[Rfam]
RNA sequence: GAUUAACAGGUGAACAAUGCUUAUAUAGUUCCAUAAUUGGUUGGACGUUUCUACAAACUACCGUAAUAGUUUACUAUAAGCCUUGCAAAAGGCGAA
Number, nucleotide and partner (000 for none) at each position: 001g000002a000003u000004u000005a000006a000007c000008a000009g000010g000011u000012g000013a000014a000015c000016a000017a000018u000019g081020c080021u079022u078023a077024u076025a075026u000027a000028g000029u000030u045031c044032c043033a042034u000035a000036a000037u000038u000039g000040g000041u000042u033043g032044g031045a030046c000047g000048u000049u000050u000051c000052u000053a000054c000055a072056a071057a070058c069059u068060a067061c000062c000063g000064u000065a000066a000067u060068a059069g058070u057071u056072u055073a000074c000075u025076a024077u023078a022079a021080g020081c019082c000083u000084u000085g000086c000087a000088a000089a000090a000091g000092g000093c000094g000095a000096a000
RNA: Purine riboswitch aptamer
Organism: Lachnospiraceae bacterium 2_1_46FAA